RNA sequence: GUUUCAGGCUGGAUAUCAUCAUAUACUGUAAGUUGGAAUGAGACACUACAGUAUAGAUGAUGUACUACCUUGAACUC
Numbered sequence: 001g002u003u004u005c006a007g008g009c010u011g012g013a014u015a016u017c018a019u020c021a022u023a024u025a026c027u028g029u030a031a032g033u034u035g036g037a038a039u040g041a042g043a044c045a046c047u048a049c050a051g052u053a054u055a056g057a058u059g060a061u062g063u064a065c066u067a068c069c070u071u072g073a074a075c076u077c
Base pairs, nucleotide, nucleotide: 007069008068011065013063014062015061016060017059018058019057020056022055023054024053025052026051027050028049029048030047032044033043034042